[Rfam]
RNA sequence: AUAAAUUGGAUAGCGCCAGACCUUAUAUAGGUGACGAGGAUUGAGCUUAUCGAAAUUUCGGCGGGUGGCUCAAGGCAGUGUAGUCUACAAAUAUUUCACAAAAUUAAGAUGCAAAUUUUAAGCCAAAAGAAAUAUUACACACCUAA
Numbered sequence: 001a002u003a004a005a006u007u008g009g010a011u012a013g014c015g016c017c018a019g020a021c022c023u024u025a026u027a028u029a030g031g032u033g034a035c036g037a038g039g040a041u042u043g044a045g046c047u048u049a050u051c052g053a054a055a056u057u058u059c060g061g062c063g064g065g066u067g068g069c070u071c072a073a074g075g076c077a078g079u080g081u082a083g084u085c086u087a088c089a090a091a092u093a094u095u096u097c098a099c100a101a102a103a104u105u106a107a108g109a110u111g112c113a114a115a116u117u118u119u120a121a122g123c124c125a126a127a128a129g130a131a132a133u134a135u136u137a138c139a140c141a142c143c144u145a146a
Stems, first nucleotide, its partner, number of pairs: 020032004042072005050061004073086004090136007104121007

glmS glucosamine-6-phosphate activated ribozyme aptamer: a 146-nucleotide RNA sequence from Ignavigranum ruoffiae. It is annotated as a riboswitch. It scores 93 bits against the family's covariance model. The family's consensus secondary structure is taken from published work.